A member of the RNA family "COG3610-DE RNA" from Lactobacillus rodentium, 115 nucleotides long. It scores 117 bits against the family's covariance model. Rfam classes the family as a small RNA.

[Rfam]
RNA sequence: GACGAGUCGAGGAAAACGCGAAGUGCGUUCUUUGACUGAAGACACCUUAACUUAAAUGUUAAAACACGGGAAGUGUUGGUGUUGGGCUACUUCGGCUGUGAAACGAAGACCCUGA
Numbered sequence: 001g002a003c004g005a006g007u008c009g010a011g012g013a014a015a016a017c018g019c020g021a022a023g024u025g026c027g028u029u030c031u032u033u034g035a036c037u038g039a040a041g042a043c044a045c046c047u048u049a050a051c052u053u054a055a056a057u058g059u060u061a062a063a064a065c066a067c068g069g070g071a072a073g074u075g076u077u078g079g080u081g082u083u084g085g086g087c088u089a090c091u092u093c094g095g096c097u098g099u100g101a102a103a104c105g106a107a108g109a110c111c112c113u114g115a
Base pairs, nucleotide, nucleotide: 006036007035008034009033010032011031012030013029016028017027018026019025041083042082043081044080045079046078048061049060050059051058063077064076065075066074067073084112085111086110090108091107092106093105094104